The family of this 370-nucleotide sequence from Galemys pyrenaicus is "Bag-1 internal ribosome entry site (IRES)". The family's consensus secondary structure was predicted with PFOLD. Lineage of the source: Eukaryota > Euteleostomi > Dipnotetrapodomorpha > Talpidae > Galemys. Rfam describes the family as follows. This family represents the bag-1 internal ribosome entry site (IRES). When expressed the BAG-1 protein is known to enhance the anti-apoptotic properties of Bcl-2. Although bag-1 translation usually occurs via a cap-dependent mechanism it has been found to contain a IRES in its 5' UTR. Translation via the IRES has been found to be common following heat shock when cap-dependent scanning is compromised. Rfam links the family to the GO term ribosome binding.

RNA sequence: UUGGUAAUCAACAAGCGCGGGUCUGGCGGAGCGCAGUGGCGCGCAGAGACCGCGAGGCGACCGGGAGCGGCUGGGUCCCCGGCGGCGCGCUCCUCGGUCCGGCCGGGAGCUGCGCCAGUCGGAGCCCCAGGCCCAGUGCGGCCCGCCUCCCUCUCAGCGACCGUCCAACAAGAGUGCUGCCAGCGGACAUGCCCGAUCCACCCGGAGCACCCCCGCCGGCGCUCGCCGACCGCGGGUGAAGAAGAAAGUGCGGCCUCGCUCGGCCCGAAGCGAAGGGGUGACCCGGAGCGAAGAGGUGACCGGGGACGAAGAGAAGACUCGGAGCGAAGAGGUGGCCCGGACUGAAGAGGUGGCCGGGAGCGAAGAGGUG
Numbered sequence: 001u002u003g004g005u006a007a008u009c010a011a012c013a014a015g016c017g018c019g020g021g022u023c024u025g026g027c028g029g030a031g032c033g034c035a036g037u038g039g040c041g042c043g044c045a046g047a048g049a050c051c052g053c054g055a056g057g058c059g060a061c062c063g064g065g066a067g068c069g070g071c072u073g074g075g076u077c078c079c080c081g082g083c084g085g086c087g088c089g090c091u092c093c094u095c096g097g098u099c100c101g102g103c104c105g106g107g108a109g110c111u112g113c114g115c116c117a118g119u120c121g122g123a124g125c126c127c128c129a130g131g132c133c134c135a136g137u138g139c140g141g142c143c144c145g146c147c148u149c150c151c152u153c154u155c156a157g158c159g160a161c162c163g164u165c166c167a168a169c170a171a172g173a174g175u176g177c178u179g180c181c182a183g184c185g186g187a188c189a190u191g192c193c194c195g196a197u198c199c200a201c202c203c204g205g206a207g208c209a210c211c212c213c214c215g216c217c218g219g220c221g222c223u224c225g226c227c228g229a230c231c232g233c234g235g236g237u238g239a240a241g242a243a244g245a246a247a248g249u250g251c252g253g254c255c256u257c258g259c260u261c262g263g264c265c266c267g268a269a270g271c272g273a274a275g276g277g278g279u280g281a282c283c284c285g286g287a288g289c290g291a292a293g294a295g296g297u298g299a300c301c302g303g304g305g306a307c308g309a310a311g312a313g314a315a316g317a318c319u320c321g322g323a324g325c326g327a328a329g330a331g332g333u334g335g336c337c338c339g340g341a342c343u344g345a346a347g348a349g350g351u352g353g354c355c356g357g358g359a360g361c362g363a364a365g366a367g368g369u370g
Base pairs, nucleotide, nucleotide: 020104021103022102023101025099026098027097038093039092041090042089043053044052046050061082062081063080064079065078067076068075144352145351146350147349148348149347169186205224206223207222208221210219211218257272258271259270260269